[Rfam]
RNA: small nucleolar RNA snoR114
RNA sequence: GAGUGAUGAGGAAAUGCUCCUGUGACAAUCGGGUUAGUCACAUUCAUCUGGCCAUCAGAUAUUAAGAGCUAGUCUGAACUC
Numbered sequence: 001g002a003g004u005g006a007u008g009a010g011g012a013a014a015u016g017c018u019c020c021u022g023u024g025a026c027a028a029u030c031g032g033g034u035u036a037g038u039c040a041c042a043u044u045c046a047u048c049u050g051g052c053c054a055u056c057a058g059a060u061a062u063u064a065a066g067a068g069c070u071a072g073u074c075u076g077a078a079c080u081c
Stems, first nucleotide, its partner, number of pairs: 001081004